A member of the RNA family "FMN riboswitch aptamer (RFN element)" from Virgisporangium ochraceum, 147 nucleotides long.
[Rfam]
RNA sequence: GCGCGUUGGCGGGAUCGGUGCAAUUCCGAACCGGCGGUAAUCCAGCUGUCACAGCUGGUCAGCCCGCGACCCGGCCGAAUCCAUCGGCCGGUGGACCUGGUGUGACUCCAGGGCCGACGGUGAAAGUCCGGAUGGGAGACAGCGCGC
Numbered sequence: 001g002c003g004c005g006u007u008g009g010c011g012g013g014a015u016c017g018g019u020g021c022a023a024u025u026c027c028g029a030a031c032c033g034g035c036g037g038u039a040a041u042c043c044a045g046c047u048g049u050c051a052c053a054g055c056u057g058g059u060c061a062g063c064c065c066g067c068g069a070c071c072c073g074g075c076c077g078a079a080u081c082c083a084u085c086g087g088c089c090g091g092u093g094g095a096c097c098u099g100g101u102g103u104g105a106c107u108c109c110a111g112g113g114c115c116g117a118c119g120g121u122g123a124a125a126g127u128c129c130g131g132a133u134g135g136g137a138g139a140c141a142g143c144g145c146g147c
Base pairs, nucleotide, nucleotide: 003145004144005143006142007141008140010138016028017027018026030127031126032116033115034067035066036065037064062114063113071091072090096112097111098110099109100108118130119129120128
A search with the family's covariance model found it, with a score of 93 bits.